[Rfam]
RNA sequence: UCUCAACGGCGCCGGACACUCCUCCUCCCAACGUCUGGCCCCGUUGUACAACCGGUGCACCUCCUCCCAGCAUCGGUUGCCAAUAAAUGGCGCCCACCGGUUCUCCUCCCUCCGGUGGGCGUUAUUU
Number, nucleotide and partner (000 for none) at each position: 001u000002c000003u000004c000005a000006a000007c043008g042009g041010c000011g039012c038013c037014g036015g035016a034017c033018a000019c000020u000021c000022c000023u000024c000025c000026u000027c000028c000029c000030a000031a000032c000033g017034u016035c015036u014037g013038g012039c011040c000041c009042c008043g007044u000045u000046g000047u000048a000049c079050a078051a077052c076053c075054g074055g073056u072057g071058c070059a000060c000061c000062u000063c000064c000065u000066c000067c000068c000069a000070g058071c057072a056073u055074c054075g053076g052077u051078u050079g049080c000081c000082a000083a000084u000085a000086a000087a000088u000089g000090g122091c121092g120093c119094c118095c117096a116097c115098c114099g113100g112101u000102u000103c000104u000105c000106c000107u000108c000109c000110c000111u000112c100113c099114g098115g097116u096117g095118g094119g093120c092121g091122u090123u000124a000125u000126u000127u000
Shown here is a 127-nucleotide RNA sequence from Stappia taiwanensis, a member of the family "Alphaproteobacterial ar14". It scores 83 bits against the family's covariance model. Taxonomically the source falls in Stappia (Bacteria, Pseudomonadati, Pseudomonadota, Hyphomicrobiales). Rfam 15.1 lists 784 matches to the family in 332 species. On this family, see del Val et al., RNA Biol 2012: "A survey of sRNA families in alpha-proteobacteria". The base pairs follow the family's consensus structure. Rfam classes the family as a small RNA. Rfam links the family to the GO term biological process involved in symbiotic interaction.